[Rfam]
RNA: c-di-GMP-I-GGC riboswitch aptamer
Organism: Desulfosporosinus sp. Sb-LF
RNA sequence: UGCGAUAAGGGCAAACUCAGUGAGAACUGAGGACGCAAAGCCACGGGUCUUACCUUAAGUGUUUAAGAUAGCCGGGUUACCGAAC
Numbered sequence: 001u002g003c004g005a006u007a008a009g010g011g012c013a014a015a016c017u018c019a020g021u022g023a024g025a026a027c028u029g030a031g032g033a034c035g036c037a038a039a040g041c042c043a044c045g046g047g048u049c050u051u052a053c054c055u056u057a058a059g060u061g062u063u064u065a066a067g068a069u070a071g072c073c074g075g076g077u078u079a080c081c082g083a084a085c
Stems, first nucleotide, its partner, number of pairs: 003082002011036002016031006034071001039078004044074003047069006